RNA sequence: GCUGCUCAUAUAUGCUACCUCUCCGUGGUGAGCAGCAGGCAACGGAUAAUUAUCCGGCUAAAGGCACAU
Numbered sequence: 001g002c003u004g005c006u007c008a009u010a011u012a013u014g015c016u017a018c019c020u021c022u023c024c025g026u027g028g029u030g031a032g033c034a035g036c037a038g039g040c041a042a043c044g045g046a047u048a049a050u051u052a053u054c055c056g057g058c059u060a061a062a063g064g065c066a067c068a069u
Stems, first nucleotide, its partner, number of pairs: 001036007017029003043056005
Dot-bracket structure: (((((((.........(((.......))))))))))......(((((....))))).............
Rfam assigns this 69-nucleotide sequence from uncultured Faecalibacterium sp. to the family "HDV ribozyme from F. prausnitzii".
The family has 48 seed sequences and 3,803 matches in Rfam 15.1.
Gene Ontology term of the family: catalytic activity.
Pairs were carried over by alignment from the consensus structure, which is taken from published work.